[Rfam]
RNA sequence: CUUACAGAGUUUAUUGGCAUUCUGUCCACCUCCUCCUAUAGGAUCCCAUAAACUCUCUCUCUCUCUCUCUCUGAUAUGGAUAUGGAUAUGGAUAGGGUAAUAUGGAGGUGGACGUCUUGCCAACUGAGCUCUGUGAG
Dot-bracket structure: ..........(..((((((...(((((((((((......................................................................)))))))))))...))))))...)..........
Numbered sequence: 001c002u003u004a005c006a007g008a009g010u011u012u013a014u015u016g017g018c019a020u021u022c023u024g025u026c027c028a029c030c031u032c033c034u035c036c037u038a039u040a041g042g043a044u045c046c047c048a049u050a051a052a053c054u055c056u057c058u059c060u061c062u063c064u065c066u067c068u069c070u071c072u073g074a075u076a077u078g079g080a081u082a083u084g085g086a087u088a089u090g091g092a093u094a095g096g097g098u099a100a101u102a103u104g105g106a107g108g109u110g111g112a113c114g115u116c117u118u119g120c121c122a123a124c125u126g127a128g129c130u131c132u133g134u135g136a137g
Stems, first nucleotide, its partner, number of pairs: 011127001014123006023114011
The family of this 137-nucleotide RNA sequence from Actinidia chinensis is "MIR394 microRNA precursor family".
The literature on the family includes a 2004 paper in Mol Cell by Jones-Rhoades and Bartel, "Computational identification of plant microRNAs and their targets, including a stress-induced miRNA".
The source organism's lineage runs through Eukaryota, Viridiplantae, Pentapetalae, Actinidiaceae and Actinidia chinensis.
The base pairs follow the family's consensus structure, which was predicted with WAR.